This 312-nucleotide sequence from Nelumbo nucifera belongs to the Rfam family "Early nodulin 40". The literature on the family includes a 2007 paper in Nucleic Acids Res by Gultyaev and Roussis, "Identification of conserved secondary structures and expansion segments in enod40 RNAs reveals new enod40 homologues in plants". It is annotated as a non-coding RNA gene. The family's consensus secondary structure is taken from published work.
RNA sequence: AUGAAACUAUUUUGGCAGGAAUCUACACAUGGGUCUUGAAAAGGAAGAUAAAUAAAGUAUGGAGAGAGAGAGAGAGAUAUAUAUAGAGAGAGAGAGAGGCAUUCAGAUAUCUCCUCCUCCAAUCUAUCAUCAGUUUGUAUAUGCUGCUGGGCCAUCAGCUUGCCUGCAGUCUAAUUCCUUCUUUAUCUUAAGCACCCACCUCAGCAAGCUUAUUAUGAUGAAGUUUUCUAGAGCUAACAGCUGCAGCUUUUGGCUAAGGGCAUAGCAAACCGGCAAGUCACAGAGAGGCUCAGAAGACUCGGAAAGGGUCUU
Numbered sequence: 001a002u003g004a005a006a007c008u009a010u011u012u013u014g015g016c017a018g019g020a021a022u023c024u025a026c027a028c029a030u031g032g033g034u035c036u037u038g039a040a041a042a043g044g045a046a047g048a049u050a051a052a053u054a055a056a057g058u059a060u061g062g063a064g065a066g067a068g069a070g071a072g073a074g075a076g077a078u079a080u081a082u083a084u085a086g087a088g089a090g091a092g093a094g095a096g097a098g099g100c101a102u103u104c105a106g107a108u109a110u111c112u113c114c115u116c117c118u119c120c121a122a123u124c125u126a127u128c129a130u131c132a133g134u135u136u137g138u139a140u141a142u143g144c145u146g147c148u149g150g151g152c153c154a155u156c157a158g159c160u161u162g163c164c165u166g167c168a169g170u171c172u173a174a175u176u177c178c179u180u181c182u183u184u185a186u187c188u189u190a191a192g193c194a195c196c197c198a199c200c201u202c203a204g205c206a207a208g209c210u211u212a213u214u215a216u217g218a219u220g221a222a223g224u225u226u227u228c229u230a231g232a233g234c235u236a237a238c239a240g241c242u243g244c245a246g247c248u249u250u251u252g253g254c255u256a257a258g259g260g261c262a263u264a265g266c267a268a269a270c271c272g273g274c275a276a277g278u279c280a281c282a283g284a285g286a287g288g289c290u291c292a293g294a295a296g297a298c299u300c301g302g303a304a305a306g307g308g309u310c311u312u
Stems, first nucleotide, its partner, number of pairs: 061120003133270006152260002296310005